[Rfam]
Streptomyces sRNA scr5239: a 142-nucleotide sequence from Streptomyces sp. S4.7. The family's RNA type in Rfam is small RNA. A search with the family's covariance model found it, with a score of 128 bits. The organism belongs to Streptomyces, within Bacteria. Rfam links the family to the GO terms mRNA binding and negative regulation of translation.

RNA sequence: CUUCCGCCCUCCCCGCACAGGAGGACGGAACGAGGUAACCGGCGCUCUCUGCCCUGACUGCGUCGAUACCUCCUCACGGCCCUCGCGGCCGUAGCAACUCCGGGCUGCGGUGCCGGACGGGCUGAGGGUCCCGUCCUGGCGC
Numbered sequence: 001c002u003u004c005c006g007c008c009c010u011c012c013c014c015g016c017a018c019a020g021g022a023g024g025a026c027g028g029a030a031c032g033a034g035g036u037a038a039c040c041g042g043c044g045c046u047c048u049c050u051g052c053c054c055u056g057a058c059u060g061c062g063u064c065g066a067u068a069c070c071u072c073c074u075c076a077c078g079g080c081c082c083u084c085g086c087g088g089c090c091g092u093a094g095c096a097a098c099u100c101c102g103g104g105c106u107g108c109g110g111u112g113c114c115g116g117a118c119g120g121g122c123u124g125a126g127g128g129u130c131c132c133g134u135c136c137u138g139g140c141g142c
Stems, first nucleotide, its partner, number of pairs: 003029004008024005032072005040065003044061002046057002077091005097111003101107002115136007